[Rfam]
RNA sequence: UGGACCAAAGAUGAAGUUUGGUGAUGUAUGAAUUAUGAACAAUAAAUACCUGUGUCUGGAACUCUGAGGUCCAA
Numbered sequence: 001u002g003g004a005c006c007a008a009a010g011a012u013g014a015a016g017u018u019u020g021g022u023g024a025u026g027u028a029u030g031a032a033u034u035a036u037g038a039a040c041a042a043u044a045a046a047u048a049c050c051u052g053u054g055u056c057u058g059g060a061a062c063u064c065u066g067a068g069g070u071c072c073a074a
Stems, first nucleotide, its partner, number of pairs: 002072005